[Rfam]
RNA sequence: UCGACUGUACUCUACAGGAUCAUGUUCGUAGUUAAUAUGUUCUGAUCUCUCAGUACUUUAGAUGGAAAUUCAGCUGGUUGAUGACACGUUGUACGCCAUCCGUAAAGAGAGGCUGAGGUCGCCACAUCUUUUAGGUGUGGUAGACCCUCGAUGAUCUUGCGUUGCUAGUACUCGCCAUCUGCGCCCUUGGGCCGGGUGGUUGACGUCUAGCUUUCUUGCAAGGAUGGUCGUACCGUCUGACAGCC
Numbered sequence: 001u002c003g004a005c006u007g008u009a010c011u012c013u014a015c016a017g018g019a020u021c022a023u024g025u026u027c028g029u030a031g032u033u034a035a036u037a038u039g040u041u042c043u044g045a046u047c048u049c050u051c052a053g054u055a056c057u058u059u060a061g062a063u064g065g066a067a068a069u070u071c072a073g074c075u076g077g078u079u080g081a082u083g084a085c086a087c088g089u090u091g092u093a094c095g096c097c098a099u100c101c102g103u104a105a106a107g108a109g110a111g112g113c114u115g116a117g118g119u120c121g122c123c124a125c126a127u128c129u130u131u132u133a134g135g136u137g138u139g140g141u142a143g144a145c146c147c148u149c150g151a152u153g154a155u156c157u158u159g160c161g162u163u164g165c166u167a168g169u170a171c172u173c174g175c176c177a178u179c180u181g182c183g184c185c186c187u188u189g190g191g192c193c194g195g196g197u198g199g200u201u202g203a204c205g206u207c208u209a210g211c212u213u214u215c216u217u218g219c220a221a222g223g224a225u226g227g228u229c230g231u232a233c234c235g236u237c238u239g240a241c242a243g244c245c
Base pairs, nucleotide, nucleotide: 002039003038006034009032010031011030016026017025019023046066047065048064050062051061053059073244074243075242076241091233092232093231094230095229096227097226098225099224100223101222105158106157107156108155117146118145119144122140162221163220164219165218167216
RNA: ACEA small nucleolar RNA U3
Organism: Tieghemiomyces parasiticus